[Rfam]
RNA sequence: GAUCGACAGUGCGACUAAUACAAUACCGCAAGGGAAUACGUCCGCCUGAUUGAAUACAGGUUUUGAGCUGUCGAUCACCCUAAC
Numbered sequence: 001g002a003u004c005g006a007c008a009g010u011g012c013g014a015c016u017a018a019u020a021c022a023a024u025a026c027c028g029c030a031a032g033g034g035a036a037u038a039c040g041u042c043c044g045c046c047u048g049a050u051u052g053a054a055u056a057c058a059g060g061u062u063u064u065g066a067g068c069u070g071u072c073g074a075u076c077a078c079c080c081u082a083a084c
Stems, first nucleotide, its partner, number of pairs: 001076009013042003016038002026033002044061005

Shown here is an 84-nucleotide RNA sequence from Pasteurellaceae bacterium 15-036681, a member of the family "sRNA-Xcc1". The match comes from Rfam's covariance-model search (65 bits). The organism belongs to Pasteurellaceae, within Bacteria. Pairs were carried over by alignment from the consensus structure, which was predicted with RNAalifold. For this family Rfam cites "sRNA-Xcc1, an integron-encoded transposon- and plasmid-transferred trans-acting sRNA, is under the positive control of the key virulence regulators HrpG and HrpX of Xanthomonas campestris pathovar campestris" (Chen et al., RNA Biol, 2011).